[Rfam]
The record is a 46-nucleotide RNA sequence from Perca flavescens, which matches "Histone 3' UTR stem-loop" in Rfam. The base pairs follow the family's consensus structure, which is taken from published work. Rfam classes the family as a cis-regulatory element. It scores 40 bits against the family's covariance model. Its family is annotated with mRNA 3'-end processing by stem-loop binding and cleavage in the Gene Ontology. Taxonomically the source falls in Perca (Eukaryota, Eupercaria, Percoidei, Percinae).
RNA sequence: CCAAAGGCUCUUUUAAGAGCCACCCACUUAUUCUGAGAGCUCCUUU
Dot-bracket structure: .....((((((....)))))).........................
Numbered sequence: 001c002c003a004a005a006g007g008c009u010c011u012u013u014u015a016a017g018a019g020c021c022a023c024c025c026a027c028u029u030a031u032u033c034u035g036a037g038a039g040c041u042c043c044u045u046u
Stems, first nucleotide, its partner, number of pairs: 006021006